[Rfam]
RNA sequence: CGCGUAGGGGUCAUUGUAGAAGCGUGCUCGUCGCGACCUCUGCCAGCCCUUUUCAGGGCUGCAAUUCUACA
Numbered sequence: 001c002g003c004g005u006a007g008g009g010g011u012c013a014u015u016g017u018a019g020a021a022g023c024g025u026g027c028u029c030g031u032c033g034c035g036a037c038c039u040c041u042g043c044c045a046g047c048c049c050u051u052u053u054c055a056g057g058g059c060u061g062c063a064a065u066u067c068u069a070c071a
Stems, first nucleotide, its partner, number of pairs: 007040006015071007022034003044061007
Dot-bracket structure: ......[[[[[[..((((((((((.......)))]]]]]]...(((((((....)))))))...)))))))
This 71-nucleotide RNA from Parnassius apollo belongs to the Rfam family "Mammalian CPEB3 ribozyme". Gene Ontology term of the family: RNA nuclease activity. The family's consensus secondary structure is taken from published work. A search with the family's covariance model found it, with a score of 50 bits. The source organism's lineage runs through Eukaryota, Opisthokonta, Ecdysozoa, Panarthropoda and Parnassius.